The family of this 348-nucleotide RNA from Clostridium sp. CAG:122 is "Bacterial RNase P class A". It scores 316 bits against the family's covariance model.
[Rfam]
RNA sequence: UGAGUAGCACAGACAAUCGCGGCUGCAAAUGCCGAAAGGCUGCAGGUGAGGAAAGUCCGGGCUUCAUAGGGCAGGAUGCCGGAUAACGUCCGGUGGAGGUGACUCCCAGGCAAGUGCAACAGAAAAUAACCGCCUGCUAUAGCAGGUAAGGGUGAAAAGGCGAGGUAAGAGCUCACCGCACUUCUGGUAACAGAAGCGGCUGUGUAAACCCCAUCCGAAGCAAGACCGAACAGAGAUGAUACGGCUGCCCGUCGUGUCUCGGGUAGGUUGCUUGAGCCUGGUGGCAACAUCAGGUCUAGAUAGAUGAUUGUUUUGAUACAGAACUCGGCUUAUAGUGUUACUCAUUCA
Numbered sequence: 001u002g003a004g005u006a007g008c009a010c011a012g013a014c015a016a017u018c019g020c021g022g023c024u025g026c027a028a029a030u031g032c033c034g035a036a037a038g039g040c041u042g043c044a045g046g047u048g049a050g051g052a053a054a055g056u057c058c059g060g061g062c063u064u065c066a067u068a069g070g071g072c073a074g075g076a077u078g079c080c081g082g083a084u085a086a087c088g089u090c091c092g093g094u095g096g097a098g099g100u101g102a103c104u105c106c107c108a109g110g111c112a113a114g115u116g117c118a119a120c121a122g123a124a125a126a127u128a129a130c131c132g133c134c135u136g137c138u139a140u141a142g143c144a145g146g147u148a149a150g151g152g153u154g155a156a157a158a159g160g161c162g163a164g165g166u167a168a169g170a171g172c173u174c175a176c177c178g179c180a181c182u183u184c185u186g187g188u189a190a191c192a193g194a195a196g197c198g199g200c201u202g203u204g205u206a207a208a209c210c211c212c213a214u215c216c217g218a219a220g221c222a223a224g225a226c227c228g229a230a231c232a233g234a235g236a237u238g239a240u241a242c243g244g245c246u247g248c249c250c251g252u253c254g255u256g257u258c259u260c261g262g263g264u265a266g267g268u269u270g271c272u273u274g275a276g277c278c279u280g281g282u283g284g285c286a287a288c289a290u291c292a293g294g295u296c297u298a299g300a301u302a303g304a305u306g307a308u309u310g311u312u313u314u315g316a317u318a319c320a321g322a323a324c325u326c327g328g329c330u331u332a333u334a335g336u337g338u339u340a341c342u343c344a345u346u347c348a
Stems, first nucleotide, its partner, number of pairs: 001344010011333001012312007020048002023045005053331003057328005062220004069250004074216005079093005094108001095106004109211002114209002116205003130151002132147006159177002162174003178200001179198001181196006224269004233260006242254004276295008
Gene Ontology terms of the family: tRNA processing, ribonuclease P activity and dimeric ribonuclease P complex.